Shown here is a 102-nucleotide sequence from Clostridium tagluense, a member of the family "Purine riboswitch aptamer". The source organism's lineage runs through Bacteria, Bacillota, Clostridia, Clostridiaceae and Clostridium. The match comes from Rfam's covariance-model search (74 bits). The base pairs follow the family's consensus structure, which is taken from published work. Riboswitches are metabolite binding domains within certain messenger RNAs that serve as precision sensors for their corresponding targets. Allosteric rearrangement of mRNA structure is mediated by ligand binding, and this results in modulation of gene expression. A class of riboswitches that selectively recognises guanine and becomes saturated at concentrations as low as 5 nM. In Bacillus subtilis, this mRNA motif is located on at least five separate transcriptional units that together encode 17 genes that are mostly involved in purine transport and purine nucleotide biosynthesis. It has also been shown that some members of this family are specific for adenine instead. Hence this family are termed purine riboswitches.
RNA sequence: AAAAUGUAGUAAAAAUUUAUCUAUAUAAUGCUAAAGAUAUGGUUUAGUAGUUUCUACUUGAAUACCUUAAAUAUUCUAGCUAUAGAUAAAUUUAUGCUACAU
Numbered sequence: 001a002a003a004a005u006g007u008a009g010u011a012a013a014a015a016u017u018u019a020u021c022u023a024u025a026u027a028a029u030g031c032u033a034a035a036g037a038u039a040u041g042g043u044u045u046a047g048u049a050g051u052u053u054c055u056a057c058u059u060g061a062a063u064a065c066c067u068u069a070a071a072u073a074u075u076c077u078a079g080c081u082a083u084a085g086a087u088a089a090a091u092u093u094a095u096g097c098u099a100c101a102u
Stems, first nucleotide, its partner, number of pairs: 018088008029049007058078001060076005